RNA sequence: UAAAUGCAGGAUUGUACGUCGCUUUCGAUAAAAGUGUCUGCUAAAUGGCAUUUU
Numbered sequence: 001u002a003a004a005u006g007c008a009g010g011a012u013u014g015u016a017c018g019u020c021g022c023u024u025u026c027g028a029u030a031a032a033a034g035u036g037u038c039u040g041c042u043a044a045a046u047g048g049c050a051u052u053u054u
Stems, first nucleotide, its partner, number of pairs: 013043001014041003020036006
RNA: UnaL2 LINE 3' element
Organism: Hucho hucho